[Rfam]
RNA sequence: UAGCUGGUGAAAGACCAGUCGUGGGAGGGGCCAAGCCCCCGCGUAGCUUGGAUUCUUGCGUACGGCGAAAUCUGUGCGUAAAAGCGAAUCGACCAAAGUACCUGUCGGAGACAGGGCGAGCAACAUGCCAGGCCGUAACAUAA
Numbered sequence: 001u002a003g004c005u006g007g008u009g010a011a012a013g014a015c016c017a018g019u020c021g022u023g024g025g026a027g028g029g030g031c032c033a034a035g036c037c038c039c040c041g042c043g044u045a046g047c048u049u050g051g052a053u054u055c056u057u058g059c060g061u062a063c064g065g066c067g068a069a070a071u072c073u074g075u076g077c078g079u080a081a082a083a084g085c086g087a088a089u090c091g092a093c094c095a096a097a098g099u100a101c102c103u104g105u106c107g108g109a110g111a112c113a114g115g116g117c118g119a120g121c122a123a124c125a126u127g128c129c130a131g132g133c134c135g136u137a138a139c140a141u142a143a
Stems, first nucleotide, its partner, number of pairs: 020043005051090005056081006065072001098117001101115005120136002

Group II catalytic intron D1-D4-4: a 143-nucleotide sequence from Paenibacillus paeoniae. A search with the family's covariance model found it, with a score of 88 bits. Rfam 15.1 lists 840 matches to the family in 506 species. NCBI's taxonomy places the organism under Bacteria, Bacillota, Caryophanales, Paenibacillaceae, Paenibacillus. Group II introns are found in rRNA, tRNA and mRNA of organelles in fungi, plants and protists, and also in mRNA in bacteria. Gene Ontology term of the family: Group II intron splicing.